FMN riboswitch aptamer (RFN element): a 129-nucleotide RNA from Vagococcus vulneris.
[Rfam]
RNA sequence: GGUCGUCUUCACGGGCAGGGUGUAAUUCCCGACCGGUGGUUAUAGUCCACGAACUGUUUAAGUAAUUAAACAGCCGAUUUGGUGAAAUUCCAAAACCGACAGUUAGAGUCUGGAGUAAAGAAGAUAGAG
Numbered sequence: 001g002g003u004c005g006u007c008u009u010c011a012c013g014g015g016c017a018g019g020g021u022g023u024a025a026u027u028c029c030c031g032a033c034c035g036g037u038g039g040u041u042a043u044a045g046u047c048c049a050c051g052a053a054c055u056g057u058u059u060a061a062g063u064a065a066u067u068a069a070a071c072a073g074c075c076g077a078u079u080u081g082g083u084g085a086a087a088u089u090c091c092a093a094a095a096c097c098g099a100c101a102g103u104u105a106g107a108g109u110c111u112g113g114a115g116u117a118a119a120g121a122a123g124a125u126a127g128a129g
Stems, first nucleotide, its partner, number of pairs: 003127001005125006018030003032109002034098002036050004045096002054073002078094005100112003
It scores 104 bits against the family's covariance model. Lineage of the source: Bacteria > Bacillati > Bacillota > Bacilli > Vagococcus.